[Rfam]
RNA sequence: CGAGCGGGACGGCCCGUUCGUUUCAUCAGACUCGGGGACGACCCC
Number, nucleotide and partner (000 for none) at each position: 001c020002g019003a018004g017005c016006g015007g014008g013009a000010c000011g000012g000013c008014c007015c006016g005017u004018u003019c002020g001021u000022u000023u000024c000025a000026u000027c000028a000029g000030a000031c000032u000033c000034g045035g044036g043037g042038a000039c000040g000041a000042c037043c036044c035045c034
RNA: Guanidine-II riboswitch aptamer (mini-ykkC)
Organism: Arthrobacter sp. MYb227